[Rfam]
RNA sequence: UGCAUCAGAAGUAGAAAUUGUGCCGCUACGCGCCUCCUUGGAGGUUACAAAAUGAAGUGCGGGACGCUGGCACACCCGCCUGAUGCA
Numbered sequence: 001u002g003c004a005u006c007a008g009a010a011g012u013a014g015a016a017a018u019u020g021u022g023c024c025g026c027u028a029c030g031c032g033c034c035u036c037c038u039u040g041g042a043g044g045u046u047a048c049a050a051a052a053u054g055a056a057g058u059g060c061g062g063g064a065c066g067c068u069g070g071c072a073c074a075c076c077c078g079c080c081u082g083a084u085g086c087a
Stems, first nucleotide, its partner, number of pairs: 001087008011029004020073005031054001032045004059079005

This 87-nucleotide RNA sequence belongs to the Rfam family "skipping-rope RNA". By type it is a small RNA. The sequence is in the family's curated seed alignment.